[Rfam]
RNA sequence: CCUUCGGAGCGUCAAAGCAACGAAAGUAGCAUUAGUUUUGCCAAAUCGGACGCGUUGAACGAGGAA
Numbered sequence: 001c002c003u004u005c006g007g008a009g010c011g012u013c014a015a016a017g018c019a020a021c022g023a024a025a026g027u028a029g030c031a032u033u034a035g036u037u038u039u040g041c042c043a044a045a046u047c048g049g050a051c052g053c054g055u056u057g058a059a060c061g062a063g064g065a066a
Base pairs, nucleotide, nucleotide: 001064002063003062004061009053010052011051012050013049021048022047023046029041030040031039
Dot-bracket structure: ((((....(((((.......(((.....(((.......)))....)))))))).......))))..
Annotation: This 66-nucleotide RNA sequence belongs to the Rfam family "RAGATH-18 RNA". From the family's description: Actinobacteria, Firmicutes, Fusobacteria, Thermotogae (1 example).